Shown here is a 102-nucleotide RNA sequence from Williamsia sp. Leaf354, a member of the family "mraW RNA".
The organism belongs to Williamsia, within Bacteria.
The family's RNA type in Rfam is cis-regulatory element.
RNA sequence: UCGCCUCGGCGAGUUCAGGCCUCUGCCCGAGAUGUCCCUGGCGCACUUCCCCAGCGCCAGGUCCGUCAUCGGGCAGGGACCCGUACUCACCGCAACGACCUC
Dot-bracket structure: ..........((((.(.((.((((((((((((((..((((((((.........))))))))..)))).)))))))))).)).).))))..............